[Rfam]
RNA sequence: GCCGGUGUAGCUCAGUUGGCAGAGCGAUUCCUUCGUAAGGAAUAGGCCGAGGGUUCAAAUCCCUCCACCGGCU
Numbered sequence: 001g002c003c004g005g006u007g008u009a010g011c012u013c014a015g016u017u018g019g020c021a022g023a024g025c026g027a028u029u030c031c032u033u034c035g036u037a038a039g040g041a042a043u044a045g046g047c048c049g050a051g052g053g054u055u056c057a058a059a060u061c062c063c064u065c066c067a068c069c070g071g072c073u
Base pairs, nucleotide, nucleotide: 001072002071003070004069005068006067007066010025011024012023013022027043028042029041030040031039049065050064051063052062053061

Overview
A member of the RNA family "tRNA" from Haloferax volcanii, 73 nucleotides long. The match comes from Rfam's covariance-model search (74 bits). The family's consensus secondary structure is taken from published work. The family's RNA type in Rfam is transfer RNA.